[Rfam]
RNA sequence: AAAAAGGGUGUUCGCUACUUCAAUAGCGCGAUUCCUGUCUGUUGACCGGCGGGGUAUGGCUAUCAAGACAUACCCAGCACGUAAUUUUUGUAAACGCGAGGUUGUUGGCUGCCAUGUAUAAGCACCGACACCUCC
Numbered sequence: 001a002a003a004a005a006g007g008g009u010g011u012u013c014g015c016u017a018c019u020u021c022a023a024u025a026g027c028g029c030g031a032u033u034c035c036u037g038u039c040u041g042u043u044g045a046c047c048g049g050c051g052g053g054g055u056a057u058g059g060c061u062a063u064c065a066a067g068a069c070a071u072a073c074c075c076a077g078c079a080c081g082u083a084a085u086u087u088u089u090g091u092a093a094a095c096g097c098g099a100g101g102u103u104g105u106u107g108g109c110u111g112c113c114a115u116g117u118a119u120a121a122g123c124a125c126c127g128a129c130a131c132c133u134c135c
Base pairs, nucleotide, nucleotide: 008080009079010078011077012076013028014027015026016025017024029051030050034049052075053074054073055072056071057070058069099133100132101131102130104129105128106127107126108125110124111123112122
This 135-nucleotide RNA from Vespula pensylvanica belongs to the Rfam family "U11 spliceosomal RNA". Taxonomically the source falls in Vespula (Eukaryota, Metazoa, Bilateria, Vespinae). The family is grouped with related families in Rfam's "U1 clan". Pairs were carried over by alignment from the consensus structure, which is taken from published work. Gene Ontology terms of the family: pre-mRNA 5'-splice site binding, mRNA 5'-splice site recognition and U11 snRNP.